[Rfam]
RNA sequence: CGUGGGCGGGCCUGACUCAUUGCUCGACCUGUGUAUUUAUUAGGUGAGCAAAGUUUCAGGUGUGCCGGCGU
Number, nucleotide and partner (000 for none) at each position: 001c000002g069003u068004g000005g066006g065007c064008g000009g000010g061011c060012c059013u058014g057015a056016c000017u000018c053019a000020u051021u050022g000023c048024u047025c046026g045027a000028c044029c043030u042031g000032u000033g000034u000035a000036u000037u000038u000039a000040u000041u000042a030043g029044g028045u026046g025047a024048g023049c000050a021051a020052a000053g018054u000055u000056u015057c014058a013059g012060g011061u010062g000063u000064g007065c006066c005067g000068g003069c002070g000071u000
Rfam assigns this 71-nucleotide sequence from Cinara cedri to the family "mir-87 microRNA precursor family". Rfam links the family to the GO terms RISC complex and miRNA-mediated post-transcriptional gene silencing. The family's consensus secondary structure was predicted with RNAalifold. On this family, see Sempere et al., Dev Biol 2003: "Temporal regulation of microRNA expression in Drosophila melanogaster mediated by hormonal signals and broad-Complex gene activity". Taxonomically the source falls in Cinara (Eukaryota, Allotriocarida, Dicondylia, Eumetabola). It scores 58 bits against the family's covariance model.